[Rfam]
RNA sequence: UAUUGUGCUGUGACGAUACAAUUUGCAAUUUGUGGACUAGAGUUUCUGAUUUGGGAAUCUUCACCCAAAAUUUGAUUAUCAAACCCAUGGCUGUCCGAGCACACUU
Numbered sequence: 001u002a003u004u005g006u007g008c009u010g011u012g013a014c015g016a017u018a019c020a021a022u023u024u025g026c027a028a029u030u031u032g033u034g035g036a037c038u039a040g041a042g043u044u045u046c047u048g049a050u051u052u053g054g055g056a057a058u059c060u061u062c063a064c065c066c067a068a069a070a071u072u073u074g075a076u077u078a079u080c081a082a083a084c085c086c087a088u089g090g091c092u093g094u095c096c097g098a099g100c101a102c103a104c105u106u
Base pairs, nucleotide, nucleotide: 002105004103005102006101007100008099045075046074050070051068052067053066054065055064
Rfam assigns this 106-nucleotide RNA sequence from Cicer arietinum to the family "Small nucleolar RNA Z157/R69/R10". It is annotated as a C/D-box small nucleolar RNA. Clan: SNORD52 clan. The family's consensus secondary structure was predicted with PFOLD. NCBI's taxonomy places the organism under Eukaryota, Embryophyta, Gunneridae, Papilionoideae, Cicer.